[Rfam]
RNA sequence: AGCCUGUGAUGAGUUUAAUCUUCUGACACCUCGUAUGAACGCUGCUCCGGUGGCGCCUGAUUACAUGCAUUCUCUGAGGCUC
Numbered sequence: 001a002g003c004c005u006g007u008g009a010u011g012a013g014u015u016u017a018a019u020c021u022u023c024u025g026a027c028a029c030c031u032c033g034u035a036u037g038a039a040c041g042c043u044g045c046u047c048c049g050g051u052g053g054c055g056c057c058u059g060a061u062u063a064c065a066u067g068c069a070u071u072c073u074c075u076g077a078g079g080c081u082c
Stems, first nucleotide, its partner, number of pairs: 001081004041054005

Annotation:
This 82-nucleotide RNA from Conger conger belongs to the Rfam family "Small nucleolar RNA SNORD60". Taxonomically the source falls in Conger (Eukaryota, Vertebrata, Elopomorpha, Congridae). On this family, see Galardi et al., Mol Cell Biol 2002: "Purified box C/D snoRNPs are able to reproduce site-specific 2'-O-methylation of target RNA in vitro".